RNA sequence: UUGCAGGUGGAAAUAUGUCUGCUCCUCAUUCCUUUGGGAGCAGGAAUACAUGACAUGCUGCAUUAAAAAAGGGGUUCUCGGGGCUGCCAACCUUACAGUAGAGCAGUAAUAUAUUUCUCCUACAUAA
Numbered sequence: 001u002u003g004c005a006g007g008u009g010g011a012a013a014u015a016u017g018u019c020u021g022c023u024c025c026u027c028a029u030u031c032c033u034u035u036g037g038g039a040g041c042a043g044g045a046a047u048a049c050a051u052g053a054c055a056u057g058c059u060g061c062a063u064u065a066a067a068a069a070a071g072g073g074g075u076u077c078u079c080g081g082g083g084c085u086g087c088c089a090a091c092c093u094u095a096c097a098g099u100a101g102a103g104c105a106g107u108a109a110u111a112u113a114u115u116u117c118u119c120c121u122a123c124a125u126a127a
Stems, first nucleotide, its partner, number of pairs: 003058003007054002018044008071120004083107002087103001094101001
RNA: Small nucleolar RNA U109